RNA sequence: UAUAUGGGGUGAGCGAAUACCCCACGAGGCGUCAUGCCGGAAUUCGCGUCCAUCAUAAGCAAGGACGUCGUAUCAUG
Numbered sequence: 001u002a003u004a005u006g007g008g009g010u011g012a013g014c015g016a017a018u019a020c021c022c023c024a025c026g027a028g029g030c031g032u033c034a035u036g037c038c039g040g041a042a043u044u045c046g047c048g049u050c051c052a053u054c055a056u057a058a059g060c061a062a063g064g065a066c067g068u069c070g071u072a073u074c075a076u077g
Stems, first nucleotide, its partner, number of pairs: 005024006046068006

The record is a 77-nucleotide RNA from Sinorhizobium alkalisoli, which matches "chrB-a RNA" in Rfam. The match comes from Rfam's covariance-model search (56 bits). It is annotated as a cis-regulatory element. NCBI's taxonomy places the organism under Bacteria, Pseudomonadati, Pseudomonadota, Rhizobiaceae, Sinorhizobium.